[Rfam]
The record is a 159-nucleotide sequence from Sesamum indicum, which matches "U12 minor spliceosomal RNA" in Rfam.
By type it is a spliceosomal small nuclear RNA.
For this family Rfam cites "The divergent U12-type spliceosome is required for pre-mRNA splicing and is essential for development in Drosophila" (Otake et al., Mol Cell, 2002).
The pairing is the family consensus, mapped onto this sequence.
Nucleotides: 159
Base pairs, nucleotide, nucleotide: 004023005022006021007020008019032053033052034051035050037048038047039046055079056078057077058076059075095159096158101156102155103154104153105152107150110147111146113144114143115142122137123136124135125134
Number, partner (000 for none) and nucleotide at each position: 001000u002000u003000g004023c005022c006021u007020u008019a009000a010000a011000c012000u013000a014000a015000u016000g017000a018000g019008u020007a021006a022005g023004g024000a025000a026000a027000a028000c029000a030000a031000a032053g033052c034051g035050g036000g037048c038047g039046g040000u041000g042000a043000g044000a045000a046039c047038c048037g049000g050035c051034c052033g053032c054000a055079g056078c057077a058076c059075c060000c061000c062000a063000c064000a065000u066000c067000a068000u069000a070000a071000a072000g073000g074000u075059g076058g077057u078056g079055c080000a081000g082000g083000a084000a085000u086000u087000u088000a089000u090000g091000g092000a093000g094000g095159g096158g097000u098000g099000a100000u101156a102155g103154g104153c105152u106000g107150g108000c109000g110147c111146g112000a113144g114143c115142g116000u117000u118000g119000a120000c121000g122137c123136u124135g125134c126000u127000u128000a129000c130000u131000u132000u133000u134125g135124c136123a137122g138000a139000a140000c141000u142115c143114g144113c145000u146111u147110g148000u149000g150107c151000g152105g153104g154103c155102c156101u157000c158096c159095c